[Rfam]
RNA sequence: UUUUUAGUAUAAGUGUGUUCUCUGCAAAAUUUGGAACAUACUUAUACUAAAA
Dot-bracket structure: .....(((((((.(((.((((...........)))).))).)))))))....